[Rfam]
RNA sequence: GGGCGUAAAGGGCGUGUAGGCGGUUGUUUAAGUCUGAUGUAAAAGGCUAUGGCUCAACCAUAGUAAGCAUUGGAAACUGGGCAACUUGAGUAUCGGAGAGGCAAGUGGAAUUUCAUGUGUAGCGGUGAAAUGCGUAGAUAUGUGAAGGAACACCAGUGGCGAAGGCGACUUGCUGGACGAUAACUGACGCUGAGGCGCGAAAGCGUGGGGAGCAAACAGGAUUAGAUACCCUGGUAGUCCACGCCGUAAACGAUGAAUGCUAAGUGUUGGGGGAGCUAUCCCUCAGUGCUGAAGUAAACGCAGUAAGCAUUCCGCCUGGGGAGUACGGUCGCAAGGCUGAAACUCAAAGGAAU
Numbered sequence: 001g002g003g004c005g006u007a008a009a010g011g012g013c014g015u016g017u018a019g020g021c022g023g024u025u026g027u028u029u030a031a032g033u034c035u036g037a038u039g040u041a042a043a044a045g046g047c048u049a050u051g052g053c054u055c056a057a058c059c060a061u062a063g064u065a066a067g068c069a070u071u072g073g074a075a076a077c078u079g080g081g082c083a084a085c086u087u088g089a090g091u092a093u094c095g096g097a098g099a100g101g102c103a104a105g106u107g108g109a110a111u112u113u114c115a116u117g118u119g120u121a122g123c124g125g126u127g128a129a130a131u132g133c134g135u136a137g138a139u140a141u142g143u144g145a146a147g148g149a150a151c152a153c154c155a156g157u158g159g160c161g162a163a164g165g166c167g168a169c170u171u172g173c174u175g176g177a178c179g180a181u182a183a184c185u186g187a188c189g190c191u192g193a194g195g196c197g198c199g200a201a202a203g204c205g206u207g208g209g210g211a212g213c214a215a216a217c218a219g220g221a222u223u224a225g226a227u228a229c230c231c232u233g234g235u236a237g238u239c240c241a242c243g244c245c246g247u248a249a250a251c252g253a254u255g256a257a258u259g260c261u262a263a264g265u266g267u268u269g270g271g272g273g274a275g276c277u278a279u280c281c282c283u284c285a286g287u288g289c290u291g292a293a294g295u296a297a298a299c300g301c302a303g304u305a306a307g308c309a310u311u312c313c314g315c316c317u318g319g320g321g322a323g324u325a326c327g328g329u330c331g332c333a334a335g336g337c338u339g340a341a342a343c344u345c346a347a348a349g350g351a352a353u
Stems, first nucleotide, its partner, number of pairs: 002316003010313001012198004017192001019191003023085007031078002033074008046064007089185003092181004100174007107151001111147008122133003159166002203244006212238002217233004255312006263290012294301002318345003327338004